[Rfam]
RNA sequence: GCUUCUCUGGCAGUGUCUUAGCUGGUUGUUGUGUGCAAUGAUGGAGGAAGCAAUCAGCAAGAAUACUGCUGCAGAAGU
Number, nucleotide and partner (000 for none) at each position: 001g000002c077003u076004u075005c074006u073007c000008u000009g070010g069011c000012a067013g066014u065015g064016u063017c000018u061019u060020a000021g058022c000023u056024g055025g054026u053027u052028g051029u050030u049031g000032u000033g000034u000035g000036c000037a000038a000039u000040g000041a000042u000043g000044g000045a000046g000047g000048a000049a030050g029051c028052a027053a026054u025055c024056a023057g000058c021059a000060a019061g018062a000063a016064u015065a014066c013067u012068g000069c010070u009071g000072c000073a006074g005075a004076a003077g002078u000